[Rfam]
Rfam assigns this 364-nucleotide RNA from Bifidobacterium biavatii to the family "Bacterial RNase P class A". The match comes from Rfam's covariance-model search (286 bits). Taxonomically the source falls in Bifidobacterium biavatii (Bacteria, Actinomycetota, Actinomycetes, Bifidobacteriaceae). The family's RNA type in Rfam is ribozyme.

RNA sequence: UGAGACCCCCUGACGACCGCGGUUCGGAUUGCCGGACUGAGGAACUUCCGGGCUCCGCAGAGCACGAUGGCGGAUAACGUCCGCCCAGGGUGACCUGAGAGACAGCGCAGCAGAGAACAGACCGCCAGCUUCGGCUGGUAAGGGUGAAACGGCGGUGUAAGAGACCACCGGGCCGCUGGCAACAGCCGGCCGCAUGGCAAGCCUCAUCGGGAGCAAGGCCAAGCAGAAGGCGCUUGAGGGCUGCUCGCCCAAUGCCUUCGGGUAGGCUGCUAGAGCUUGGCGGCGACGCCAAGUCGAGAUGGAUGGUCGUCCGCGCCGCGUUCGCGCGGCGUGACAGAACCCGGGGUAUAAGGGGUCUCAAUUA
Numbered sequence: 001u002g003a004g005a006c007c008c009c010c011u012g013a014c015g016a017c018c019g020c021g022g023u024u025c026g027g028a029u030u031g032c033c034g035g036a037c038u039g040a041g042g043a044a045c046u047u048c049c050g051g052g053c054u055c056c057g058c059a060g061a062g063c064a065c066g067a068u069g070g071c072g073g074a075u076a077a078c079g080u081c082c083g084c085c086c087a088g089g090g091u092g093a094c095c096u097g098a099g100a101g102a103c104a105g106c107g108c109a110g111c112a113g114a115g116a117a118c119a120g121a122c123c124g125c126c127a128g129c130u131u132c133g134g135c136u137g138g139u140a141a142g143g144g145u146g147a148a149a150c151g152g153c154g155g156u157g158u159a160a161g162a163g164a165c166c167a168c169c170g171g172g173c174c175g176c177u178g179g180c181a182a183c184a185g186c187c188g189g190c191c192g193c194a195u196g197g198c199a200a201g202c203c204u205c206a207u208c209g210g211g212a213g214c215a216a217g218g219c220c221a222a223g224c225a226g227a228a229g230g231c232g233c234u235u236g237a238g239g240g241c242u243g244c245u246c247g248c249c250c251a252a253u254g255c256c257u258u259c260g261g262g263u264a265g266g267c268u269g270c271u272a273g274a275g276c277u278u279g280g281c282g283g284c285g286a287c288g289c290c291a292a293g294u295c296g297a298g299a300u301g302g303a304u305g306g307u308c309g310u311c312c313g314c315g316c317c318g319c320g321u322u323c324g325c326g327c328g329g330c331g332u333g334a335c336a337g338a339a340c341c342c343g344g345g346g347u348a349u350a351a352g353g354g355g356u357c358u359c360a361a362u363u364a
Stems, first nucleotide, its partner, number of pairs: 001360009012311007020039008044347003048344005053213004060246004065209005070084005085099001086097004100204002105202002107198002122143002124139006151169002154166003170193001171191005176185003217268004226259006238250004275294008